[Rfam]
RNA: transfer-messenger RNA
RNA sequence: GGGGCCGAUUCUGGUUUCGACUCCGUACAGCGAGCCAGGGGAAGCGUGCCGGUGCAGGCUGAGGACCACCGCAAGCGUCGCAGCAAACAAUCAAGCGCCGAGAACACUCAGCGCGACUACGCCCUCGCUGCCUAAGCAGCGACCGCGUGUCUGUCAGACCGGGAUGGCCCCCGUCCCGGACCCUGGCAUCGACUAAGAGGGGCUCGCCAGCCCGGUUGGCCGCAAGGCCGGGCUGGGACACCUUCCUUGCGGCUGGGCCCGUCAUCCGGACAUGUUCGCCUGAGCCGGAGGGCCGAGCAGAGACCCCGCGCGAACUGCGCACGGAGAAGCCCUGGCGAGAUGGCGGAGGACCCGGGUUCAAUUCCCGGCGGCUCCACUG
Numbered sequence: 001g002g003g004g005c006c007g008a009u010u011c012u013g014g015u016u017u018c019g020a021c022u023c024c025g026u027a028c029a030g031c032g033a034g035c036c037a038g039g040g041g042a043a044g045c046g047u048g049c050c051g052g053u054g055c056a057g058g059c060u061g062a063g064g065a066c067c068a069c070c071g072c073a074a075g076c077g078u079c080g081c082a083g084c085a086a087a088c089a090a091u092c093a094a095g096c097g098c099c100g101a102g103a104a105c106a107c108u109c110a111g112c113g114c115g116a117c118u119a120c121g122c123c124c125u126c127g128c129u130g131c132c133u134a135a136g137c138a139g140c141g142a143c144c145g146c147g148u149g150u151c152u153g154u155c156a157g158a159c160c161g162g163g164a165u166g167g168c169c170c171c172c173g174u175c176c177c178g179g180a181c182c183c184u185g186g187c188a189u190c191g192a193c194u195a196a197g198a199g200g201g202g203c204u205c206g207c208c209a210g211c212c213c214g215g216u217u218g219g220c221c222g223c224a225a226g227g228c229c230g231g232g233c234u235g236g237g238a239c240a241c242c243u244u245c246c247u248u249g250c251g252g253c254u255g256g257g258c259c260c261g262u263c264a265u266c267c268g269g270a271c272a273u274g275u276u277c278g279c280c281u282g283a284g285c286c287g288g289a290g291g292g293c294c295g296a297g298c299a300g301a302g303a304c305c306c307c308g309c310g311c312g313a314a315c316u317g318c319g320c321a322c323g324g325a326g327a328a329g330c331c332c333u334g335g336c337g338a339g340a341u342g343g344c345g346g347a348g349g350a351c352c353c354g355g356g357u358u359c360a361a362u363u364c365c366c367g368g369c370g371g372c373u374c375c376a377c378u379g
Stems, first nucleotide, its partner, number of pairs: 001375007021348006034336007045323005050071005058084004063079001125142007152188006159179007167203005207236009218254006256294005262288002271282002274315004278309002352368005